[Rfam]
RNA sequence: GGUUUAAAGGGUCCGUAGGCGGACCGAUAAGUCAGUGGUGAAAUCUCAUAGCUUAACUAUGAAACUGCCGUUGAUACUGUCGGUCUUGAGUAAAUUUGAAGUGGCUGGAAUAAGUAGUGUAGCGGUGAAAUGCAUAGAUAUUACUUAGAACACCAAUUGCGAAGGCAGGUCACUAAGAUUUAACUGACGCUGAGGGACGAAAGCGUGGGGAGCGAACAGGAUUAGAUACCCUGGUAGUCCACGCCGUAAACGAUGCUAACUCGUUUUUGGGGCGCAAGCUUCAGAGACCAAGCGAAAGUGAUAAGUUAGCCACCUGGGGAGUACGUCCGCAAGGAUGAAACUCAAAGGAAU
Numbered sequence: 001g002g003u004u005u006a007a008a009g010g011g012u013c014c015g016u017a018g019g020c021g022g023a024c025c026g027a028u029a030a031g032u033c034a035g036u037g038g039u040g041a042a043a044u045c046u047c048a049u050a051g052c053u054u055a056a057c058u059a060u061g062a063a064a065c066u067g068c069c070g071u072u073g074a075u076a077c078u079g080u081c082g083g084u085c086u087u088g089a090g091u092a093a094a095u096u097u098g099a100a101g102u103g104g105c106u107g108g109a110a111u112a113a114g115u116a117g118u119g120u121a122g123c124g125g126u127g128a129a130a131u132g133c134a135u136a137g138a139u140a141u142u143a144c145u146u147a148g149a150a151c152a153c154c155a156a157u158u159g160c161g162a163a164g165g166c167a168g169g170u171c172a173c174u175a176a177g178a179u180u181u182a183a184c185u186g187a188c189g190c191u192g193a194g195g196g197a198c199g200a201a202a203g204c205g206u207g208g209g210g211a212g213c214g215a216a217c218a219g220g221a222u223u224a225g226a227u228a229c230c231c232u233g234g235u236a237g238u239c240c241a242c243g244c245c246g247u248a249a250a251c252g253a254u255g256c257u258a259a260c261u262c263g264u265u266u267u268u269g270g271g272g273c274g275c276a277a278g279c280u281u282c283a284g285a286g287a288c289c290a291a292g293c294g295a296a297a298g299u300g301a302u303a304a305g306u307u308a309g310c311c312a313c314c315u316g317g318g319g320a321g322u323a324c325g326u327c328c329g330c331a332a333g334g335a336u337g338a339a340a341c342u343c344a345a346a347g348g349a350a351u
Base pairs, nucleotide, nucleotide: 001314002313003312009311011198012197013196014195016192018191019190020189022085023084024083025082026081027080028079030078031077032074033073034072035071036070037069038068039067040066046062047061048060049059050058051057089185090184091183092181093180094179095178096177097176100174101173102172103171104170105169106168107151111147112146113145114144115143116142117141118140122133123132124131159166160165203244204243205242206241207240208239212238213237217233218232219231220230255310256309257308258307259306260305263288264287265286266285267284268283269282270281271280272279273278292299293298316343317342318341325336326335327334328333
RNA: Bacterial small subunit ribosomal RNA, nucleotides 556 to 906